[Rfam]
RNA sequence: AGAAUGCACAUUAAUUAUCCCUUGGCCAUGGGAUAAACAAAUACCCUGAAAAAGUAAGUUAGCACAUCCUAGAAUGGUUCUAGCACAAUUACUAACCUAUGGGUUUGAUGCCAAUUGAUGGGAAAAACCU
Numbered sequence: 001a002g003a004a005u006g007c008a009c010a011u012u013a014a015u016u017a018u019c020c021c022u023u024g025g026c027c028a029u030g031g032g033a034u035a036a037a038c039a040a041a042u043a044c045c046c047u048g049a050a051a052a053a054g055u056a057a058g059u060u061a062g063c064a065c066a067u068c069c070u071a072g073a074a075u076g077g078u079u080c081u082a083g084c085a086c087a088a089u090u091a092c093u094a095a096c097c098u099a100u101g102g103g104u105u106u107g108a109u110g111c112c113a114a115u116u117g118a119u120g121g122g123a124a125a126a127a128c129c130u
Base pairs, nucleotide, nucleotide: 009120010119011118012117013116014115015114016113022107024105025104026102027101028100029099030098031097032096047085048084052079053078055076056075059072060071061070062069

The record is a 130-nucleotide RNA from Vitis vinifera, which matches "MIR845_2 microRNA precursor family" in Rfam. The match comes from Rfam's covariance-model search (133 bits). A reference for the family is Jaillon et al. (2007), "The grapevine genome sequence suggests ancestral hexaploidization in major angiosperm phyla", Nature. Rfam links the family to the GO terms RISC complex and miRNA-mediated post-transcriptional gene silencing.